[Rfam]
RNA sequence: GCCGCGGGACGACCCGUGGCUUACCAAAACGGCGGGACGGCCCGC
Numbered sequence: 001g002c003c004g005c006g007g008g009a010c011g012a013c014c015c016g017u018g019g020c021u022u023a024c025c026a027a028a029a030c031g032g033c034g035g036g037a038c039g040g041c042c043c044g045c
Base pairs, nucleotide, nucleotide: 001020002019003018004017005016006015007014008013032045033044034043035042036041
This 45-nucleotide RNA from Methylocaldum marinum belongs to the Rfam family "Guanidine-II riboswitch aptamer (mini-ykkC)". NCBI's taxonomy places the organism under Bacteria, Pseudomonadota, Gammaproteobacteria, Methylococcales, Methylocaldum. Simpler in structure and has fewer highly conserved nucleotide positions than the ykkC-yxkD leader. Despite this each of its two stem-loop structures directly bind free guanidine.